SAM riboswitch aptamer (S box leader): a 101-nucleotide sequence from Anaeromicrobium sediminis.
A search with the family's covariance model found it, with a score of 86 bits.

RNA sequence: AUCUUAUCAAGAGCGGCGGAGGGACUGGCCCUAUGAAGCCCGGCAACCUAGAUUAAAUUCUGUGGUGCUAAAUCCAGCAGGUGAUACCUGGCAGAUAAGGG
Numbered sequence: 001a002u003c004u005u006a007u008c009a010a011g012a013g014c015g016g017c018g019g020a021g022g023g024a025c026u027g028g029c030c031c032u033a034u035g036a037a038g039c040c041c042g043g044c045a046a047c048c049u050a051g052a053u054u055a056a057a058u059u060c061u062g063u064g065g066u067g068c069u070a071a072a073u074c075c076a077g078c079a080g081g082u083g084a085u086a087c088c089u090g091g092c093a094g095a096u097a098a099g100g101g
Stems, first nucleotide, its partner, number of pairs: 002100007013041001015040003021031003025077004042069004047065002049062004073093001078090005

Rfam describes the family as follows. The SAM riboswitch is found upstream of a number of genes which code for proteins involved in methionine or cysteine biosynthesis in Gram-positive bacteria. NCBI's taxonomy places the organism under Bacteria, Bacillati, Clostridia, Peptostreptococcales, Anaeromicrobium.